[Rfam]
RNA: ES036 (CssrF) sRNA
Organism: Escherichia coli
RNA sequence: AAAAUCUUGCCAAUUCAAUAUAUUGCAGGACCAUGUAGGCCU
Numbered sequence: 001a002a003a004a005u006c007u008u009g010c011c012a013a014u015u016c017a018a019u020a021u022a023u024u025g026c027a028g029g030a031c032c033a034u035g036u037a038g039g040c041c042u
Base pairs, nucleotide, nucleotide: 005030006029008027009026010025012023